[Rfam]
RNA sequence: UUGGUUUAAAUUAAAGUGGGUCUCACACUUUGGAAAUAAGUUUCACUUAAAGUGGUGGGACAUAUAUUAAUUUCAUCCAA
Numbered sequence: 001u002u003g004g005u006u007u008a009a010a011u012u013a014a015a016g017u018g019g020g021u022c023u024c025a026c027a028c029u030u031u032g033g034a035a036a037u038a039a040g041u042u043u044c045a046c047u048u049a050a051a052g053u054g055g056u057g058g059g060a061c062a063u064a065u066a067u068u069a070a071u072u073u074c075a076u077c078c079a080a
Stems, first nucleotide, its partner, number of pairs: 001080004006075001008073007016065003023058003026054007